RNA sequence: AAGUAGUGUGACAUGCCCGUUUGGUGUUAAACUCUGAUGUAGUAUUUAUUAUUUAAUUGUUUGGGAUAACGGGGUGUUACAUCGCU
Numbered sequence: 001a002a003g004u005a006g007u008g009u010g011a012c013a014u015g016c017c018c019g020u021u022u023g024g025u026g027u028u029a030a031a032c033u034c035u036g037a038u039g040u041a042g043u044a045u046u047u048a049u050u051a052u053u054u055a056a057u058u059g060u061u062u063g064g065g066a067u068a069a070c071g072g073g074g075u076g077u078u079a080c081a082u083c084g085c086u
Stems, first nucleotide, its partner, number of pairs: 002086003006082009016073006
Record summary: MIR2617 microRNA precursor family: an 86-nucleotide RNA sequence from Medicago truncatula. NCBI's taxonomy places the organism under Eukaryota, Viridiplantae, Embryophyta, Papilionoideae, Medicago. Gene Ontology terms of the family: miRNA-mediated post-transcriptional gene silencing and RISC complex. The match comes from Rfam's covariance-model search (65 bits). The family's consensus secondary structure was predicted with RNAalifold.